Shown here is a 99-nucleotide RNA sequence from Vibrio xiamenensis, a member of the family "gltS RNA".
[Rfam]
RNA sequence: UAUCACUAGGGAUUAAUUUUCUCGCAACACAUUUCCUGCGAGAGAGAACGGACUCAAGCCAGUUGCCUAAGCUGGUUUCGACUCAAUUUCAAGGACAAC
Numbered sequence: 001u002a003u004c005a006c007u008a009g010g011g012a013u014u015a016a017u018u019u020u021c022u023c024g025c026a027a028c029a030c031a032u033u034u035c036c037u038g039c040g041a042g043a044g045a046g047a048a049c050g051g052a053c054u055c056a057a058g059c060c061a062g063u064u065g066c067c068u069a070a071g072c073u074g075g076u077u078u079c080g081a082c083u084c085a086a087u088u089u090c091a092a093g094g095a096c097a098a099c
Stems, first nucleotide, its partner, number of pairs: 020043007058076007
Pairs were carried over by alignment from the consensus structure, which is taken from published work.